[Rfam]
Nucleotides: 152
Base pairs, nucleotide, nucleotide: 004071005070006069007068008067009066015049084146085145086144087143088142089141090140091139092138093137094136098133099132100131101130102129103128
Number, partner (000 for none) and nucleotide at each position: 001000c002000a003000u004071g005070c006069a007068g008067g009066a010000c011000u012000a013000g014000u015049g016000u017000a018000a019000a020000u021000g022000u023000a024000g025000c026000u027000g028000c029000a030000c031000a032000u033000a034000g035000a036000a037000u038000u039000u040000c041000a042000u043000u044000g045000u046000a047000c048000a049015u050000g051000c052000a053000g054000c055000u056000u057000a058000a059000a060000c061000u062000u063000g064000u065000u066009u067008c068007c069006u070005g071004c072000u073000a074000a075000a076000c077000c078000a079000a080000u081000u082000u083000u084146g085145g086144g087143a088142g089141a090140a091139a092138u093137g094136g095000g096000c097000a098133g099132u100131u101130g102129a103128g104000u105000u106000u107000g108000g109000c110000c111000a112000a113000u114000u115000u116000a117000u118000c119000c120000a121000u122000g123000g124000u125000u126000u127000c128103c129102u130101c131100a132099a133098c134000a135000a136094u137093c138092a139091u140090u141089u142088u143087u144086c145085c146084c147000a148000c149000a150000u151000g152000u
Shown here is a 152-nucleotide RNA sequence from Oryza punctata, a member of the family "small nucleolar RNA snoR135". Rfam classes the family as an H/ACA-box small nucleolar RNA. Rfam links the family to the GO terms RNA processing and nucleolus.